transfer-messenger RNA: a 371-nucleotide RNA from Apilactobacillus kunkeei. Rfam describes the family as follows. Bacterial tmRNA, also known as 10Sa RNA or SsrA, is named for its dual tRNA and mRNA-like properties.

RNA sequence: GGGGGCGUUAUGGAUUCGACGGGUAUAGUUCGAAUUCGGAUUGCGUUCGCAGCGGCGUCUGCUCAACCGUCCAGUUUUUAAAUUAUAACUGCAAACAAUAAUUCAAACAACGUCGCUUUAGCUGCCUAAUAAGCAGUCUACGACAAUCCAACUAGCUUUGCCUAGGGGCUAACUUGGGUUUUAUAAUUGAUAGGCUUACGUUACUUGCUCACACCUGAAGUUAAGUAAAAGAGAGUAAUCAGGUUAGCUGAUCAUGUUAACCCUGGAAUACGGUGCUUUGGUCAGUGAAACUCCAAAUAGUAUCCCUAUGAGCGUAGAUAUUCGAAUGGCGAUAUGCUCGGACGCGGGUUCGACUCCCGCCGCCUCCAUAC
Numbered sequence: 001g002g003g004g005g006c007g008u009u010a011u012g013g014a015u016u017c018g019a020c021g022g023g024u025a026u027a028g029u030u031c032g033a034a035u036u037c038g039g040a041u042u043g044c045g046u047u048c049g050c051a052g053c054g055g056c057g058u059c060u061g062c063u064c065a066a067c068c069g070u071c072c073a074g075u076u077u078u079u080a081a082a083u084u085a086u087a088a089c090u091g092c093a094a095a096c097a098a099u100a101a102u103u104c105a106a107a108c109a110a111c112g113u114c115g116c117u118u119u120a121g122c123u124g125c126c127u128a129a130u131a132a133g134c135a136g137u138c139u140a141c142g143a144c145a146a147u148c149c150a151a152c153u154a155g156c157u158u159u160g161c162c163u164a165g166g167g168g169c170u171a172a173c174u175u176g177g178g179u180u181u182u183a184u185a186a187u188u189g190a191u192a193g194g195c196u197u198a199c200g201u202u203a204c205u206u207g208c209u210c211a212c213a214c215c216u217g218a219a220g221u222u223a224a225g226u227a228a229a230a231g232a233g234a235g236u237a238a239u240c241a242g243g244u245u246a247g248c249u250g251a252u253c254a255u256g257u258u259a260a261c262c263c264u265g266g267a268a269u270a271c272g273g274u275g276c277u278u279u280g281g282u283c284a285g286u287g288a289a290a291c292u293c294c295a296a297a298u299a300g301u302a303u304c305c306c307u308a309u310g311a312g313c314g315u316a317g318a319u320a321u322u323c324g325a326a327u328g329g330c331g332a333u334a335u336g337c338u339c340g341g342a343c344g345c346g347g348g349u350u351c352g353a354c355u356c357c358c359g360c361c362g363c364c365u366c367c368a369u370a371c
Stems, first nucleotide, its partner, number of pairs: 001367007020340008029331001034327008044314005049062004054071004118140001121137005145180006153171005160195005201228007209220001213245001215243002247286008256277001260274003265306002268303001269300001344360005
Its Rfam clan is "tRNA clan".